[Rfam]
RNA sequence: GGUCAAGUCCUGUACAGCAGCAGAGGGCAAAACCCCGUGAGGUCCGGAAGGAAGCAGCGGUAUGUUCAACGGUUGUGUGAUGCAGGGUAGCUUGACCUCG
Numbered sequence: 001g002g003u004c005a006a007g008u009c010c011u012g013u014a015c016a017g018c019a020g021c022a023g024a025g026g027g028c029a030a031a032a033c034c035c036c037g038u039g040a041g042g043u044c045c046g047g048a049a050g051g052a053a054g055c056a057g058c059g060g061u062a063u064g065u066u067c068a069a070c071g072g073u074u075g076u077g078u079g080a081u082g083c084a085g086g087g088u089a090g091c092u093u094g095a096c097c098u099c100g
Base pairs, nucleotide, nucleotide: 004094005093006092007091008090009086010085011084012083013082014081015077017076018075019074020073021072025067026066027065028064029063035060036059037058038057043052044051045050

Shown here is a 100-nucleotide RNA sequence from an Ignavibacteriales bacterium, a member of the family "Bacterial small signal recognition particle RNA". It is annotated as a non-coding RNA gene. The signal recognition particle (SRP) is a universally conserved ribonucleoprotein involved in the co-translational targeting of proteins to membranes.